[Rfam]
The record is a 631-nucleotide RNA sequence from Brassica rapa, which matches "MIR824 microRNA precursor family" in Rfam. Pairs were carried over by alignment from the consensus structure, which was predicted with WAR. For this family Rfam cites "Hypoxia-responsive microRNAs and trans-acting small interfering RNAs in Arabidopsis" (Moldovan et al., J Exp Bot, 2010). Lineage of the source: Eukaryota > Embryophyta > Tracheophyta > Gunneridae > Brassica rapa. Rfam 15.1 lists 31 matches to the family in 11 species. Rfam links the family to the GO terms RISC complex and miRNA-mediated post-transcriptional gene silencing.

RNA sequence: CUCGAGUUGUCUUUCAUGUCUAGACCAUUUGUGAGAAGGGAUUUUUUGUUUGCACCGUUCACCCCACUCUCAAUCUGUAGUGAGUAUUAAGGAAAAUAGCUUGUUCAACAUAUCACACUACUCUUUUAGAAACAAAACUAUAUUUUAGAUGCUUUUCCAGCUUGAUAUACGUUGUUUUGUUAUGUAUACCUGUAUUCUCCCGGCUACCAAAACGUUAAGAAAUAAGGUGAACAUCUCCCCAAAACCUGCAUCCAAUUAGAAAGGUCUAGGUCACAGCCAUUACUUGCUAUCUCUCGAUUAAGCUAUUUUAUUUCUAUCAUCAUCAUCAGAUCAUUCAGGAGUUAAGUAUAAAAUAAAAUACAUUAAGUCCAUUCAUGACAUUUCUGGAUGCUGCAUACAUAAUAUUUUGUUUUUGGACUAUGCCACACUUCGGACAGACAUUUUUCCUACGAGAUGUCAAACCUCUGUCUGGAGUGUUAGAGGUAUUUCAUGAUAGCUAAGAACUUGAAUCUUGCACUACUUAGCUACACUAGUUUACUUCAUAGUAAAUAACUUGGGGAGUGGGGAAGGUGCUGGGUUAUUAGUCCCUUCUCAUCGAUGGUCUAGAUGUGCGAGGUGACUCUCAUUGAGG
Numbered sequence: 001c002u003c004g005a006g007u008u009g010u011c012u013u014u015c016a017u018g019u020c021u022a023g024a025c026c027a028u029u030u031g032u033g034a035g036a037a038g039g040g041a042u043u044u045u046u047u048g049u050u051u052g053c054a055c056c057g058u059u060c061a062c063c064c065c066a067c068u069c070u071c072a073a074u075c076u077g078u079a080g081u082g083a084g085u086a087u088u089a090a091g092g093a094a095a096a097u098a099g100c101u102u103g104u105u106c107a108a109c110a111u112a113u114c115a116c117a118c119u120a121c122u123c124u125u126u127u128a129g130a131a132a133c134a135a136a137a138c139u140a141u142a143u144u145u146u147a148g149a150u151g152c153u154u155u156u157c158c159a160g161c162u163u164g165a166u167a168u169a170c171g172u173u174g175u176u177u178u179g180u181u182a183u184g185u186a187u188a189c190c191u192g193u194a195u196u197c198u199c200c201c202g203g204c205u206a207c208c209a210a211a212a213c214g215u216u217a218a219g220a221a222a223u224a225a226g227g228u229g230a231a232c233a234u235c236u237c238c239c240c241a242a243a244a245c246c247u248g249c250a251u252c253c254a255a256u257u258a259g260a261a262a263g264g265u266c267u268a269g270g271u272c273a274c275a276g277c278c279a280u281u282a283c284u285u286g287c288u289a290u291c292u293c294u295c296g297a298u299u300a301a302g303c304u305a306u307u308u309u310a311u312u313u314c315u316a317u318c319a320u321c322a323u324c325a326u327c328a329g330a331u332c333a334u335u336c337a338g339g340a341g342u343u344a345a346g347u348a349u350a351a352a353a354u355a356a357a358a359u360a361c362a363u364u365a366a367g368u369c370c371a372u373u374c375a376u377g378a379c380a381u382u383u384c385u386g387g388a389u390g391c392u393g394c395a396u397a398c399a400u401a402a403u404a405u406u407u408u409g410u411u412u413u414u415g416g417a418c419u420a421u422g423c424c425a426c427a428c429u430u431c432g433g434a435c436a437g438a439c440a441u442u443u444u445u446c447c448u449a450c451g452a453g454a455u456g457u458c459a460a461a462c463c464u465c466u467g468u469c470u471g472g473a474g475u476g477u478u479a480g481a482g483g484u485a486u487u488u489c490a491u492g493a494u495a496g497c498u499a500a501g502a503a504c505u506u507g508a509a510u511c512u513u514g515c516a517c518u519a520c521u522u523a524g525c526u527a528c529a530c531u532a533g534u535u536u537a538c539u540u541c542a543u544a545g546u547a548a549a550u551a552a553c554u555u556g557g558g559g560a561g562u563g564g565g566g567a568a569g570g571u572g573c574u575g576g577g578u579u580a581u582u583a584g585u586c587c588c589u590u591c592u593c594a595u596c597g598a599u600g601g602u603c604u605a606g607a608u609g610u611g612c613g614a615g616g617u618g619a620c621u622c623u624c625a626u627u628g629a630g631g
Base pairs, nucleotide, nucleotide: 001630002629003628004622005621006620007619008618009617010616011615012614013613015611016610017609018608019607020606021605022604023603024602025601026600027599028598029597031595032594033593034592035591036590037589038588039587040586041585042584043583052573053572054571055570056569064564065563066562067561068560069559070558071557